[Rfam]
Nucleotides: 067
Stems, first nucleotide, its partner, number of pairs: 007062003010058004015053014
Number, partner (000 for none) and nucleotide at each position: 001000c002000u003000g004000c005000a006000c007062u008061c009060u010058a011057c012056a013055g014000u015053g016052c017051u018050g019049u020048g021047u022046c023045u024044c025043c026042a027041g028040u029000g030000g031000g032000a033000g034000u035000a036000g037000g038000c039000a040028g041027c042026u043025g044024g045023a046022g047021g048020c049019g050018c051017a052016g053015c054000c055013c056012u057011g058010u059000u060009g061008g062007g063000a064000u065000c066000c067000c
The record is a 67-nucleotide sequence from Indicator maculatus, which matches "mir-139 microRNA precursor family" in Rfam. Its family is annotated with miRNA-mediated post-transcriptional gene silencing and RISC complex in the Gene Ontology. The base pairs follow the family's consensus structure, which was predicted with RNAalifold.